[Rfam]
RNA sequence: UGGAAGUGAUGAAAUAGAGAUAAUUGGAUGUCUCUUUGAACGGAGUGCGUGUGAUAAGUGGAAUUUAAACAUCAUCAAACUGGGGGUGGGGUGUGGGGAGUGUGUGUGUGUGUGUGUGUAUGGAAAAGGCUUGGAACGGGGGCACUGACAAUGCAGUGCUGAUUCCGGAGUGCAUCUGAGGCGUGUUGUUAAAUUCUGGGGUGUCCCUUUACAACAUUGCCGAUGAUUAAAGCCCAAAACAAGCCCACCAAGACAAGCCUAGGCAUCCUUAAUCUCGAACAGGUUCACUCAUGGAAGUGAUCCUGUGAUCUGAUCCAA
Numbered sequence: 001u002g003g004a005a006g007u008g009a010u011g012a013a014a015u016a017g018a019g020a021u022a023a024u025u026g027g028a029u030g031u032c033u034c035u036u037u038g039a040a041c042g043g044a045g046u047g048c049g050u051g052u053g054a055u056a057a058g059u060g061g062a063a064u065u066u067a068a069a070c071a072u073c074a075u076c077a078a079a080c081u082g083g084g085g086g087u088g089g090g091g092u093g094u095g096g097g098g099a100g101u102g103u104g105u106g107u108g109u110g111u112g113u114g115u116g117u118g119u120a121u122g123g124a125a126a127a128g129g130c131u132u133g134g135a136a137c138g139g140g141g142g143c144a145c146u147g148a149c150a151a152u153g154c155a156g157u158g159c160u161g162a163u164u165c166c167g168g169a170g171u172g173c174a175u176c177u178g179a180g181g182c183g184u185g186u187u188g189u190u191a192a193a194u195u196c197u198g199g200g201g202u203g204u205c206c207c208u209u210u211a212c213a214a215c216a217u218u219g220c221c222g223a224u225g226a227u228u229a230a231a232g233c234c235c236a237a238a239a240c241a242a243g244c245c246c247a248c249c250a251a252g253a254c255a256a257g258c259c260u261a262g263g264c265a266u267c268c269u270u271a272a273u274c275u276c277g278a279a280c281a282g283g284u285u286c287a288c289u290c291a292u293g294g295a296a297g298u299g300a301u302c303c304u305g306u307g308a309u310c311u312g313a314u315c316c317a318a
Base pairs, nucleotide, nucleotide: 001317002316003315004314184216185215186214187213188212189211191209193204194203196201
This 318-nucleotide sequence from Leptosomus discolor belongs to the Rfam family "Small Cajal body-specific RNA 7". It scores 180 bits against the family's covariance model. The family has 18 seed sequences and 570 matches in Rfam 15.1. The family's RNA type in Rfam is small Cajal body RNA. Pairs were carried over by alignment from the consensus structure.